[Rfam]
RNA sequence: AAUCGACAUCAGAGACUCAUUUUGAGAGCCUUGCCCAACAGCAAGGUAGGCAUUCAUGCCUAACUCUUUCAUUUGCUCUUCGCCGAUAACGCGAGUUGUUAACCUAUUAUCUGAAAUAUCAGCCAGUUGGCGCGCUUGAGACGCUAAGUAAGCUGCAUUACAGAUAUUGGGUGGCAUAUUACCGAGAUCUUUCGC
Numbered sequence: 001a002a003u004c005g006a007c008a009u010c011a012g013a014g015a016c017u018c019a020u021u022u023u024g025a026g027a028g029c030c031u032u033g034c035c036c037a038a039c040a041g042c043a044a045g046g047u048a049g050g051c052a053u054u055c056a057u058g059c060c061u062a063a064c065u066c067u068u069u070c071a072u073u074u075g076c077u078c079u080u081c082g083c084c085g086a087u088a089a090c091g092c093g094a095g096u097u098g099u100u101a102a103c104c105u106a107u108u109a110u111c112u113g114a115a116a117u118a119u120c121a122g123c124c125a126g127u128u129g130g131c132g133c134g135c136u137u138g139a140g141a142c143g144c145u146a147a148g149u150a151a152g153c154u155g156c157a158u159u160a161c162a163g164a165u166a167u168u169g170g171g172u173g174g175c176a177u178a179u180u181a182c183c184g185a186g187a188u189c190u191u192u193c194g195c
Stems, first nucleotide, its partner, number of pairs: 005189002012032003016028003020024001035041001050059002062077001064075001079134001081132007091123002095119002099113001102110001136163003140159002143156002167186002170183003
The family of this 195-nucleotide sequence is "Yersinia sRNA 276".
Rfam classes the family as an antisense RNA.